[Rfam]
RNA sequence: ACAAUAGCCGAGGGGCACCCCGUCGCGAAUCGCGGGGUUGAGACGCACCCUUUGAACCUGAUCCGGCUGACACCGGCGGAGGGACGGCGAGAUCGACCGAG
Numbered sequence: 001a002c003a004a005u006a007g008c009c010g011a012g013g014g015g016c017a018c019c020c021c022g023u024c025g026c027g028a029a030u031c032g033c034g035g036g037g038u039u040g041a042g043a044c045g046c047a048c049c050c051u052u053u054g055a056a057c058c059u060g061a062u063c064c065g066g067c068u069g070a071c072a073c074c075g076g077c078g079g080a081g082g083g084a085c086g087g088c089g090a091g092a093u094c095g096a097c098c099g100a101g
Stems, first nucleotide, its partner, number of pairs: 007088004011051004016045001017038007057082003063076004